[Rfam]
RNA sequence: AGGCAGGACUUCUGUCCUUUCUUAAACCGUCCCCUCGGGGGC
Numbered sequence: 001a002g003g004c005a006g007g008a009c010u011u012c013u014g015u016c017c018u019u020u021c022u023u024a025a026a027c028c029g030u031c032c033c034c035u036c037g038g039g040g041g042c
Base pairs, nucleotide, nucleotide: 002021003020005018006017007016008015009014029042030041031040032039033038